[Rfam]
RNA sequence: CUGCUGCCGGGGCUUGUUUUCUGUUGCCUGCGGUUUGUUCCAGGGACUCAGGCAGCGAAAGCAAGUCUGGGAGGCUG
Numbered sequence: 001c002u003g004c005u006g007c008c009g010g011g012g013c014u015u016g017u018u019u020u021c022u023g024u025u026g027c028c029u030g031c032g033g034u035u036u037g038u039u040c041c042a043g044g045g046a047c048u049c050a051g052g053c054a055g056c057g058a059a060a061g062c063a064a065g066u067c068u069g070g071g072a073g074g075c076u077g
Stems, first nucleotide, its partner, number of pairs: 003075002007071002010068011022057009032047001

mir-1788 microRNA precursor family: a 77-nucleotide sequence from Falco tinnunculus.
It scores 82 bits against the family's covariance model.
NCBI's taxonomy places the organism under Eukaryota, Opisthokonta, Vertebrata, Falconidae, Falco.
Pairs were carried over by alignment from the consensus structure, which was predicted with RNAalifold.